[Rfam]
RNA sequence: UGAUGCCAGGGUGCAGAAAGUCAUACAUCCCAUGCUUGCAUGGGAAUGGAUGACUUUGGCGCCCGCGAAACAUGAGAAAGUAGCCAUUUUUCACAGAAAAAAUGUGCGAAUUUCGAAUGUUUCCAGGAUUUCGGGAGUGCGCAGCACGGAGAAAUCCGCAGGCAUCA
Numbered sequence: 001u002g003a004u005g006c007c008a009g010g011g012u013g014c015a016g017a018a019a020g021u022c023a024u025a026c027a028u029c030c031c032a033u034g035c036u037u038g039c040a041u042g043g044g045a046a047u048g049g050a051u052g053a054c055u056u057u058g059g060c061g062c063c064c065g066c067g068a069a070a071c072a073u074g075a076g077a078a079a080g081u082a083g084c085c086a087u088u089u090u091u092c093a094c095a096g097a098a099a100a101a102a103u104g105u106g107c108g109a110a111u112u113u114c115g116a117a118u119g120u121u122u123c124c125a126g127g128a129u130u131u132c133g134g135g136a137g138u139g140c141g142c143a144g145c146a147c148g149g150a151g152a153a154a155u156c157c158g159c160a161g162g163c164a165u166c167a
Stems, first nucleotide, its partner, number of pairs: 001167007010063004017057008026048003030043005067123007076114004083107002085104007126157007137147004
Overview: The family of this 167-nucleotide RNA from Marvinbryantia formatexigens is "Clostridiales-1 RNA". The match comes from Rfam's covariance-model search (123 bits). Taxonomically the source falls in Marvinbryantia formatexigens (Bacteria, Clostridia, Lachnospiraceae, Marvinbryantia). The family has 194 seed sequences and 1,172 matches in Rfam 15.1.